[Rfam]
RNA sequence: AAGAAAUGUGGCAUGCCCGUUGUGAUUACUCUGAUGAUUGAUGUAUUAUUAUUAUUUUAAUUGAUUUUGGGAAACGGGGUGUUACACCCAU
Numbered sequence: 001a002a003g004a005a006a007u008g009u010g011g012c013a014u015g016c017c018c019g020u021u022g023u024g025a026u027u028a029c030u031c032u033g034a035u036g037a038u039u040g041a042u043g044u045a046u047u048a049u050u051a052u053u054a055u056u057u058u059a060a061u062u063g064a065u066u067u068u069g070g071g072a073a074a075c076g077g078g079g080u081g082u083u084a085c086a087c088c089c090a091u
Base pairs, nucleotide, nucleotide: 002091007086008085009084010083011082012081013080014079016078017077018076019075020074021073
Dot-bracket structure: .(....((((((((.((((((...................................................))))))))))))))....)
This 91-nucleotide RNA sequence from Medicago truncatula belongs to the Rfam family "MIR2617 microRNA precursor family". The match comes from Rfam's covariance-model search (48 bits). Gene Ontology terms of the family: miRNA-mediated post-transcriptional gene silencing and RISC complex.